[Rfam]
RNA sequence: CACUUUGUUACCGCUUCAAUAUCGCGUAACAAAGCCGGGUCUUACGGUAACGGAAACCCG
Number, nucleotide and partner (000 for none) at each position: 001c000002a000003c000004u000005u032006u031007g030008u029009u028010a027011c026012c000013g025014c024015u000016u000017c000018a000019a000020u000021a000022u000023c000024g014025c013026g011027u010028a009029a008030c007031a006032a005033a000034g000035c000036c060037g059038g058039g057040u056041c000042u054043u000044a000045c052046g051047g000048u000049a000050a000051c046052g045053g000054a042055a000056a040057c039058c038059c037060g036

Description:
Pseudomonas sRNA P36: a 60-nucleotide sequence from Pseudomonas sp. GV071. The literature on the family includes a 2006 paper in Nucleic Acids Res by Livny et al., "Identification of 17 Pseudomonas aeruginosa sRNAs and prediction of sRNA-encoding genes in 10 diverse pathogens using the bioinformatic tool sRNAPredict2". Pairs were carried over by alignment from the consensus structure, which was predicted with RNAalifold.